Shown here is a 429-nucleotide sequence, a member of the family "HOLDH RNA". From the family's description: Environmental (human tongue dorsum, human supragingival plaque).
RNA sequence: AUGCUUUAAGUGAAGGGAAAUAUCCGUGUCGGGGUAAACUACGGCUUCCGGAUUCCUGGAUAGAGCAUCUCAUAGGAAAGUACCGUUAGAAAGAUCAACUCGUAAUUGAUUGAGUAUAAAUAACCUCUGGAGGGAGGUCGCGGGAAACUAUGAUGAAACUCCUAGAAGUGGGCGUGCCUGGCAGAAGGAGUAGGUCGAAAACUGGUUGCUGAAGCAGCGUAAGCUCCCUGAUGUAAACUCCCUGAAGUUAUCAUAGUAAUACAUCAAAGCAAUAUGAAAGUUGGCCAGUAUAAAUAAAUUCCCUGUUAACGGAAAGAGGGUUUGCAAAUCCGACGUCGUGAGACACGGACCUCAUGGGAAGAAGAAGCAACUUUAGUGUUAGAGAGAUACUGUUAAUGAGCUCUAACAUGUUCAAAUAUUUUAUUUAAG
Number, nucleotide and partner (000 for none) at each position: 001a068002u067003g066004c065005u064006u063007u062008a061009a000010g000011u000012g000013a000014a000015g000016g056017g055018a054019a000020a000021u000022a000023u052024c051025c050026g049027u000028g045029u044030c043031g042032g000033g000034g000035u000036a000037a000038a000039c000040u000041a000042c031043g030044g029045c028046u000047u000048c000049c026050g025051g024052a023053u000054u018055c017056c016057u000058g000059g000060a000061u008062a007063g006064a005065g004066c003067a002068u001069c000070u153071c152072a151073u150074a149075g148076g000077a000078a000079a000080g000081u000082a000083c143084c142085g141086u140087u000088a000089g000090a000091a000092a000093g000094a000095u000096c108097a107098a106099c000100u000101c000102g000103u000104a000105a000106u098107u097108g096109a000110u000111u000112g000113a000114g000115u000116a000117u000118a000119a000120a000121u000122a000123a000124c137125c136126u135127c134128u133129g000130g000131a000132g000133g128134g127135a126136g125137g124138u000139c000140g086141c085142g084143g083144g000145a000146a000147a000148c075149u074150a073151u072152g071153a070154u000155g000156a000157a000158a000159c190160u189161c188162c187163u186164a000165g000166a000167a000168g000169u180170g179171g178172g177173c000174g000175u000176g000177c172178c171179u170180g169181g000182c000183a000184g000185a000186a163187g162188g161189a160190g159191u000192a000193g000194g000195u000196c000197g000198a000199a000200a000201a289202c288203u287204g286205g285206u000207u000208g000209c000210u000211g000212a000213a000214g000215c000216a000217g000218c000219g000220u000221a000222a000223g270224c269225u268226c000227c000228c000229u266230g265231a264232u263233g262234u261235a000236a000237a000238c000239u000240c000241c000242c000243u000244g000245a000246a000247g000248u000249u000250a000251u000252c000253a000254u000255a000256g000257u000258a000259a000260u000261a234262c233263a232264u231265c230266a229267a000268a225269g224270c223271a000272a000273u000274a000275u000276g000277a000278a373279a372280g371281u370282u369283g368284g000285c205286c204287a203288g202289u201290a000291u000292a000293a000294a000295u000296a000297a000298a000299u000300u359301c358302c357303c356304u000305g000306u000307u000308a000309a000310c000311g000312g000313a000314a000315a000316g353317a352318g351319g350320g000321u000322u000323u000324g000325c000326a000327a000328a000329u349330c348331c347332g346333a000334c000335g000336u000337c000338g000339u000340g000341a000342g000343a000344c000345a000346c332347g331348g330349a329350c319351c318352u317353c316354a000355u000356g303357g302358g301359a300360a000361g000362a000363a000364g000365a000366a000367g000368c283369a282370a281371c280372u279373u278374u000375a000376g409377u408378g407379u406380u405381a404382g403383a402384g401385a000386g000387a000388u000389a000390c000391u000392g000393u000394u000395a000396a000397u000398g000399a000400g000401c384402u383403c382404u381405a380406a379407c378408a377409u376410g000411u429412u428413c000414a426415a425416a424417u000418a000419u000420u000421u000422u000423a000424u416425u415426u414427a000428a412429g411